[Rfam]
RNA sequence: UGGCUGGUCCAGCUAUGAGAACUGAAUUCCAUGGACUGUUAUAAUUCACAACCUGCGGUCCGUAGAGGUCAGUUCUCCAGCUUGGCUGCCGUCC
Dot-bracket structure: .......((.(((....((((((((.......((((((.................)))))).......))))))))...))).)).........
RNA: mir-146 microRNA precursor family
Organism: Aquarana catesbeiana